This 108-nucleotide RNA sequence from Hymenobacter lutimineralis belongs to the Rfam family "TPP riboswitch aptamer (THI element)". The organism belongs to Hymenobacter, within Bacteria.
RNA sequence: CAAACUGUUUAGGGGUGCCCCGCGUCGGGAGUGGCGUAGAGGCUGAGAUCAUACCCAUUGAACCUGCCCGGGUAAUGCCGGCGAAGGGAACAAACGAUCCGCGAACGA
Dot-bracket structure: .....(((((.(((.((((.(.................).))).......)..)))......(((..((((......))))...)))....)))))............
Numbered sequence: 001c002a003a004a005c006u007g008u009u010u011a012g013g014g015g016u017g018c019c020c021c022g023c024g025u026c027g028g029g030a031g032u033g034g035c036g037u038a039g040a041g042g043c044u045g046a047g048a049u050c051a052u053a054c055c056c057a058u059u060g061a062a063c064c065u066g067c068c069c070g071g072g073u074a075a076u077g078c079c080g081g082c083g084a085a086g087g088g089a090a091c092a093a094a095c096g097a098u099c100c101g102c103g104a105a106c107g108a
Stems, first nucleotide, its partner, number of pairs: 006096005012056003016051001017043003021039001063087003068081004